[Rfam]
RNA sequence: CAUAGCUGGUGGCGCACUUCUCCCUGACCGGGCGGCGUCGUCAUGCACAUUCUGAGGAACUCAGUGCAGAUACCCAAGCCCGCCGCCAGCGGGCUUUUUUUU
Dot-bracket structure: ........((((.((.((.(((.......))).)).))..))))................................(((((((.....))))))).......
RNA: Tryptophan operon leader
Organism: Winslowiella iniecta